[Rfam]
Rfam assigns this 72-nucleotide RNA sequence from Coleofasciculus chthonoplastes to the family "tRNA".
RNA sequence: GCCGGUGUAGCUCAGUGGUAGAGCAUUCGAUUCGUAAUCGAACGGUCAGCGGUUCAAAUCCGCUCAUCGGCU
Numbered sequence: 001g002c003c004g005g006u007g008u009a010g011c012u013c014a015g016u017g018g019u020a021g022a023g024c025a026u027u028c029g030a031u032u033c034g035u036a037a038u039c040g041a042a043c044g045g046u047c048a049g050c051g052g053u054u055c056a057a058a059u060c061c062g063c064u065c066a067u068c069g070g071c072u
Stems, first nucleotide, its partner, number of pairs: 001071007010024004026042005048064005
About the family: Transfer RNA (tRNA) molecules are approximately 80 nucleotides in length.